[Rfam]
This 596-nucleotide part of an RNA from Erythrocercus mccallii belongs to the Rfam family "Eukaryotic small subunit ribosomal RNA". The base pairs follow the family's consensus structure, which is taken from published work. Rfam links the family to the GO terms structural constituent of ribosome and ribosome. The organism belongs to Erythrocercus, within Eukaryota.
RNA sequence: AGUCAUAUGCUUGUCUCAAAGAUUAAGCCAUGCAUGUGCAAGUAUGAACUAAUUCGAACUGUGAAACUGCGAAUGGCUCAUUAAAUCAGUUAUAGUUUGUUUGAUGGUACGUGCUACUCGGAUAACCGUAGUAAUUCUAGAGCUAAUACGUGCAACAAACCCCGACUUCCGGGAGGGGCGCAUUUAUUAGAUAAAAGGCUGACGCGGGCUCUGCCCGCCGAUCCGAUGAUUCAUGAUAACUUGACGGAUCGCACGGCCUUCGUGCCGGCGACGCAUCAUUCAAAUUUCUGCCCUAUCAACUUUCGAUGGUACUGUCUGUGCCUACCAUGGUGACCACGGGUGACGGGGAAUCAGGGUUCGAUUCCGGAGAGGGAGCCUGAGAAACGGCUACCACAUCCAAGGAAGGCAGCAGGCGCGCAAAUUACCCAAUCCUGACACGGGGAGGUAGUGACAAUAAAUAACAAUACCGGGCGCGUUAGUGUCUGGUAAUUGGAAUGAGUACAAUCUAAAUCCCUUAACGAGGAUCCAUUGGAGGGCAAGUCUGGUGCCAGCAGCCGCGGUAAUUCCAGCUCCAAUAGCGUAUAUUUAAGUUGUUG
Number, nucleotide and partner (000 for none) at each position: 001a586002g585003u584004c000005a583006u582007a581008u580009g579010c578011u577012u000013g000014u456015c000016u454017c000018a000019a000020a449021g416022a000023u000024u000025a000026a000027g414028c413029c412030a000031u411032g410033c409034a000035u000036g070037u069038g000039c000040a000041a068042g067043u066044a000045u000046g000047a000048a062049c061050u000051a000052a000053u000054u000055c000056g000057a000058a000059c000060u000061g049062u048063g000064a000065a000066a043067c042068u041069g037070c036071g000072a000073a000074u000075g000076g000077c369078u368079c367080a000081u000082u000083a000084a000085a000086u000087c290088a289089g288090u000091u000092a285093u284094a000095g000096u283097u282098u000099g000100u000101u000102u278103g277104a276105u275106g000107g000108u000109a000110c000111g000112u000113g000114c000115u000116a000117c152118u000119c150120g149121g000122a000123u000124a000125a000126c142127c000128g000129u139130a138131g137132u000133a000134a000135u000136u000137c131138u130139a129140g000141a000142g126143c000144u000145a000146a000147u000148a000149c120150g119151u000152g117153c000154a000155a000156c000157a000158a000159a000160c178161c177162c176163c175164g000165a000166c172167u171168u000169c000170c000171g167172g166173g000174a000175g163176g162177g161178g160179c000180g000181c000182a000183u000184u239185u238186a237187u236188u235189a234190g000191a000192u000193a000194a000195a000196a000197g000198g227199c000200u225201g224202a000203c000204g000205c000206g215207g214208g000209c000210u000211c000212u000213g000214c207215c206216c000217g000218c000219c000220g000221a000222u000223c000224c201225g200226a000227u198228g000229a000230u000231u000232c000233a000234u189235g188236a187237u186238a185239a184240c000241u000242u000243g000244a000245c000246g000247g000248a000249u271250c270251g269252c268253a000254c267255g266256g265257c264258c000259u000260u000261c000262g000263u000264g257265c256266c255267g254268g252269c251270g250271a249272c000273g000274c000275a105276u104277c103278a102279u000280u000281c000282a097283a096284a093285u092286u000287u000288c089289u088290g087291c000292c340293c339294u338295a000296u000297c000298a000299a331300c330301u329302u000303u000304c000305g000306a328307u327308g326309g325310u324311a323312c000313u000314g000315u000316c000317u000318g000319u000320g000321c000322c000323u311324a310325c309326c308327a307328u306329g301330g300331u299332g000333a000334c000335c000336a000337c000338g294339g293340g292341u000342g000343a000344c366345g365346g364347g363348g359349a358350a357351u356352c000353a000354g000355g000356g351357u350358u349359c348360g000361a000362u000363u347364c346365c345366g344367g079368a078369g077370a000371g392372g391373g000374a389375g388376c387377c000378u000379g000380a000381g000382a000383a000384a000385c000386g000387g376388c375389u374390a000391c372392c371393a000394c405395a000396u403397c402398c000399a000400a000401g000402g397403a396404a000405g394406g000407c000408a000409g033410c032411a031412g029413g028414c027415g000416c021417g000418c000419a000420a000421a000422u447423u000424a446425c445426c444427c000428a000429a000430u442431c441432c440433u439434g438435a000436c000437a000438c434439g433440g432441g431442g430443a000444g426445g425446u424447a422448g000449u020450g000451a000452c000453a000454a016455u000456a014457a000458a000459u000460a000461a000462c492463a491464a490465u488466a487467c486468c485469g484470g483471g482472c481473g480474c479475g000476u000477u000478a000479g474480u473481g472482u471483c470484u469485g468486g467487u466488a465489a000490u464491u463492g462493g000494a000495a000496u000497g000498a000499g519500u518501a516502c000503a515504a000505u000506c000507u000508a000509a000510a000511u000512c000513c000514c000515u503516u501517a000518a500519c499520g000521a000522g000523g000524a000525u000526c000527c000528a000529u575530u574531g573532g572533a571534g570535g000536g000537c000538a000539a000540g000541u000542c569543u568544g567545g566546u000547g000548c000549c000550a000551g558552c557553a000554g000555c000556c000557g552558c551559g000560g000561u000562a000563a000564u000565u000566c545567c544568a543569g542570c534571u533572c532573c531574a530575a529576u000577a011578g010579c009580g008581u007582a006583u005584a003585u002586u001587u000588a000589a000590g000591u000592u000593g000594u000595u000596g000